[Rfam]
RNA sequence: ACGACAGUACUUGCACAGGAUCACUGCUACAGUGAUUCCUCUUGCAAGCAUGUCAUAAAACAGAGCUUCGCAGCAUCUCUGAUGAUGUCAAUCUCUGCACUGAUAAGGAAUUUGCUGGAACCUGCUCCCAGCUUGAUGAAAUCUAUCAGUGCAGAUUUCUAAAGAGAU
Numbered sequence: 001a002c003g004a005c006a007g008u009a010c011u012u013g014c015a016c017a018g019g020a021u022c023a024c025u026g027c028u029a030c031a032g033u034g035a036u037u038c039c040u041c042u043u044g045c046a047a048g049c050a051u052g053u054c055a056u057a058a059a060a061c062a063g064a065g066c067u068u069c070g071c072a073g074c075a076u077c078u079c080u081g082a083u084g085a086u087g088u089c090a091a092u093c094u095c096u097g098c099a100c101u102g103a104u105a106a107g108g109a110a111u112u113u114g115c116u117g118g119a120a121c122c123u124g125c126u127c128c129c130a131g132c133u134u135g136a137u138g139a140a141a142u143c144u145a146u147c148a149g150u151g152c153a154g155a156u157u158u159c160u161a162a163a164g165a166g167a168u
Stems, first nucleotide, its partner, number of pairs: 001043001003041001006036001008034004017028002020025001047067003051062003076167005094155005100149006114132003118127001

Rfam assigns this 168-nucleotide RNA from Polarella glacialis to the family "ACEA small nucleolar RNA U3". By type it is a C/D-box small nucleolar RNA. Rfam describes the family as follows. Small nucleolar RNAs (snoRNAs) are involved in the processing and modification of rRNA in the nucleolus. The source organism's lineage runs through Eukaryota, Alveolata, Suessiales, Suessiaceae and Polarella. Gene Ontology terms of the family: RNA processing and nucleolus. The literature on the family includes a 1997 paper in Nucleic Acids Res by Zwieb, "The uRNA database". Rfam 15.1 lists 2,156 matches to the family in 132 species.